[Rfam]
RNA sequence: UUCUUAUCAAGAGAGGUCGAGGGUCUGGCCCUAUGAAGCCUCAGCAACCAUCAAUUUUUUGAAAAGGUGCUAAUUCCAGCAAGUAUUUUACUUGGAAGAUAAGAA
Numbered sequence: 001u002u003c004u005u006a007u008c009a010a011g012a013g014a015g016g017u018c019g020a021g022g023g024u025c026u027g028g029c030c031c032u033a034u035g036a037a038g039c040c041u042c043a044g045c046a047a048c049c050a051u052c053a054a055u056u057u058u059u060u061g062a063a064a065a066g067g068u069g070c071u072a073a074u075u076c077c078a079g080c081a082a083g084u085a086u087u088u089u090a091c092u093u094g095g096a097a098g099a100u101a102a103g104a105a
Stems, first nucleotide, its partner, number of pairs: 001105008013042005021031003025079004043071004048067002051062003075097001080094006
RNA: SAM riboswitch aptamer (S box leader)